[Rfam]
RNA sequence: GGUGCGGCUAGCUUUAGCGGGCGAAAAGACUGGCUCAUCACCGGUUCUGCCGCGCCUUCCUUCAGUGAUG
Dot-bracket structure: ((((((((..((((....)))).....(((((.........)))))..))))))))..............